[Rfam]
RNA sequence: GAUCUGAUAGUAUGAUAGAAAGAAAUAGAAAUAUAUUUCUUUCUAUCAUACUAUCUAUUUUUGUUUUUCUAGUGUAUAAAGUUGU
Numbered sequence: 001g002a003u004c005u006g007a008u009a010g011u012a013u014g015a016u017a018g019a020a021a022g023a024a025a026u027a028g029a030a031a032u033a034u035a036u037u038u039c040u041u042u043c044u045a046u047c048a049u050a051c052u053a054u055c056u057a058u059u060u061u062u063g064u065u066u067u068u069c070u071a072g073u074g075u076a077u078a079a080a081g082u083u084g085u
Base pairs, nucleotide, nucleotide: 006055007054008053009052010051011050012049013048014047015046016045017044018043019042020041021040022039023038024037025036026035027034
Shown here is an 85-nucleotide RNA from Jatropha curcas, a member of the family "Plastid-psbM 3UTR RNA". Rfam's curators write: Plastid psbM is a non-coding RNA (ncRNA) recognised in plastids. By type it is a cis-regulatory element. Rfam's curators put it in the seed alignment. The literature on the family includes a 2023 paper in Plant Commun by Richter et al., "Retrograde signaling in plants: A critical review focusing on the GUN pathway and beyond".